The family of this 133-nucleotide RNA sequence from Cyprinus carpio is "U11 spliceosomal RNA". Gene Ontology terms of the family: pre-mRNA 5'-splice site binding, mRNA 5'-splice site recognition and U11 snRNP.
RNA sequence: AAAAAGGGCAUCUGCUGUGAUUGGCAUAGCUGUGGAUGGUUUCUGACACAGCUACGGAAUCACUAUCAAGAGAUUUCGGAUGCACAAUUUUUAUAACCCGAGGCUGCCAAUGAUCGCUAAUCUUGGUGCCUCA
Numbered sequence: 001a002a003a004a005a006g007g008g009c010a011u012c013u014g015c016u017g018u019g020a021u022u023g024g025c026a027u028a029g030c031u032g033u034g035g036a037u038g039g040u041u042u043c044u045g046a047c048a049c050a051g052c053u054a055c056g057g058a059a060u061c062a063c064u065a066u067c068a069a070g071a072g073a074u075u076u077c078g079g080a081u082g083c084a085c086a087a088u089u090u091u092u093a094u095a096a097c098c099c100g101a102g103g104c105u106g107c108c109a110a111u112g113a114u115c116g117c118u119a120a121u122c123u124u125g126g127u128g129c130c131u132c133a
Base pairs, nucleotide, nucleotide: 008083009082010081011080012079013026014025015024016023017022027054028053029052030051031050032049033048034047036044038042055078056077057076058075059074060073061072101131102130103129104128106127107126108125109124110123112122113121114120